[Rfam]
RNA sequence: AGAGGCGACAAGCUUAUGUAUACGGGCAAACUUACGAAAAGACUUGUUCUUUAAUCUAAAACCCGUGGGAAGGUCUGAGAAAAGCCGCUAAAUGUCUUUGCUGGACAACCUGUUAAAAAUGGGGGCAGUGCUACCAGAAAUUAUUAUCGUCUGAAGACCAUUAGUACCUUUGAAGGAUUCGGAUGACCCUCUUGGGGGGAGUCAGUCUCUUGAUGGGUGUGUCUCAGAUGUUUACUGUAACGGCCUGCGGGUGGUAAUGCUAUGAAGUGCAAUACAUGAGACUGACAUUGUCAGUAACUCAAUUCAGACUACUCUGUUGCCUCU
Number, nucleotide and partner (000 for none) at each position: 001a324002g323003a322004g321005g000006c000007g000008a317009c316010a315011a000012g000013c280014u279015u278016a277017u276018g275019u274020a000021u000022a066023c065024g064025g063026g062027c000028a000029a000030a000031c000032u000033u000034a000035c000036g000037a000038a052039a051040a050041g049042a048043c000044u000045u000046g000047u000048u042049c041050u040051u039052u038053a000054a000055u000056c000057u000058a000059a000060a000061a000062c026063c025064c024065g023066u022067g000068g000069g000070a000071a000072g000073g000074u000075c307076u306077g305078a304079g303080a000081a000082a000083a252084g000085c250086c249087g000088c000089u000090a000091a000092a000093u107094g106095u105096c104097u103098u000099u000100g000101c000102u000103g097104g096105a095106c094107a093108a000109c123110c122111u121112g120113u119114u000115a000116a000117a000118a000119a113120u112121g111122g110123g109124g000125g248126c247127a246128g245129u000130g244131c243132u242133a000134c000135c000136a000137g000138a000139a000140a000141u000142u000143a000144u000145u234146a233147u000148c000149g000150u000151c000152u000153g000154a000155a000156g000157a000158c000159c000160a000161u000162u000163a000164g000165u000166a000167c000168c000169u000170u000171u000172g000173a000174a000175g000176g000177a000178u000179u000180c000181g000182g000183a000184u000185g000186a000187c000188c000189c000190u000191c000192u000193u000194g000195g000196g000197g000198g000199g000200a000201g000202u000203c000204a000205g000206u000207c000208u000209c000210u000211u000212g000213a000214u000215g000216g000217g000218u000219g000220u000221g000222u000223c000224u000225c000226a000227g000228a000229u000230g000231u000232u000233u146234a145235c000236u000237g000238u000239a000240a000241c000242g132243g131244c130245c128246u127247g126248c125249g086250g085251g000252u083253g000254g000255u000256a000257a000258u000259g000260c000261u000262a000263u000264g000265a000266a000267g000268u000269g000270c000271a000272a000273u000274a019275c018276a017277u016278g015279a014280g013281a295282c294283u293284g292285a291286c000287a000288u000289u000290g000291u285292c284293a283294g282295u281296a000297a000298c000299u000300c000301a000302a000303u079304u078305c077306a076307g075308a000309c000310u000311a000312c000313u000314c000315u010316g009317u008318u000319g000320c000321c004322u003323c002324u001
Nuclear RNase P: a 324-nucleotide sequence from Choanephora cucurbitarum. The source organism's lineage runs through Eukaryota, Mucorineae, Choanephoraceae, Choanephoroideae and Choanephora. Gene Ontology terms of the family: ribonuclease P activity, tRNA processing and ribonuclease P complex. Pairs were carried over by alignment from the consensus structure, which is taken from published work. Ribonuclease P (RNase P) is a ubiquitous endoribonuclease, found in archaea, bacteria and eukarya as well as chloroplasts and mitochondria. Its best characterised activity is the generation of mature 5'-ends of tRNAs by cleaving the 5'-leader elements of precursor-tRNAs. Cellular RNase Ps are ribonucleoproteins. RNA from bacterial RNase Ps retains its catalytic activity in the absence of the protein subunit, i.e. it is a ribozyme.